[Rfam]
The family of this 132-nucleotide sequence from Prolemur simus is "Small nucleolar RNA SNORA42/SNORA80 family". Rfam describes the family as follows. The members of this family belong to the H/ACA class of snoRNAs that guide the sites of modification of uridines to pseudouridines. Rfam 15.1 lists 1,535 matches to the family in 183 species. A reference for the family is Schattner et al. (2006), "A computational screen for mammalian pseudouridylation guide H/ACA RNAs", RNA. A search with the family's covariance model found it, with a score of 130 bits.
RNA sequence: GCAUGGGUUUGGAUUUAUGGCAGGCCCGUCCCCCUGGGCCUCAUAGUGCCCCAUGCCAGAACAAACUGUGGCCCCAAACCAUUGCCUGGCCUGUGCCCAUUGGCUGCUGGUACUGAAGUGGGUUGCACAACG
Number, nucleotide and partner (000 for none) at each position: 001g056002c055003a054004u053005g051006g050007g049008u048009u000010u000011g000012g000013a000014u000015u046016u045017a044018u043019g000020g000021c000022a041023g040024g039025c037026c036027c000028g000029u000030c000031c000032c000033c000034c000035u000036g026037g025038g000039c024040c023041u022042c000043a018044u017045a016046g015047u000048g008049c007050c006051c005052c000053a004054u003055g002056c001057c000058a000059g000060a000061a000062c000063a000064a000065a000066c000067u000068g000069u125070g124071g123072c122073c121074c120075c000076a000077a000078a000079c000080c115081a114082u000083u000084g000085c110086c109087u106088g105089g104090c103091c102092u000093g000094u000095g000096c000097c000098c000099a000100u000101u000102g091103g090104c089105u088106g087107c000108u000109g086110g085111u000112a000113c000114u081115g080116a000117a000118g000119u000120g074121g073122g072123u071124u070125g069126c000127a000128c000129a000130a000131c000132g000